[Rfam]
RNA sequence: CGCCAAUUUUGCCCAGGCAGAGCUCGACCGCCGUUUCAAACAAUGACGGCGUCCAUCAACGAACACCGCGACGCGUACGGAGUCGAGCCGAUCUGCCGGCAGUUGGAGAUCGCUAAG
Numbered sequence: 001c002g003c004c005a006a007u008u009u010u011g012c013c014c015a016g017g018c019a020g021a022g023c024u025c026g027a028c029c030g031c032c033g034u035u036u037c038a039a040a041c042a043a044u045g046a047c048g049g050c051g052u053c054c055a056u057c058a059a060c061g062a063a064c065a066c067c068g069c070g071a072c073g074c075g076u077a078c079g080g081a082g083u084c085g086a087g088c089c090g091a092u093c094u095g096c097c098g099g100c101a102g103u104u105g106g107a108g109a110u111c112g113c114u115a116a117g
Stems, first nucleotide, its partner, number of pairs: 016032003020028001078117001081114002089112002092109003096105001098103001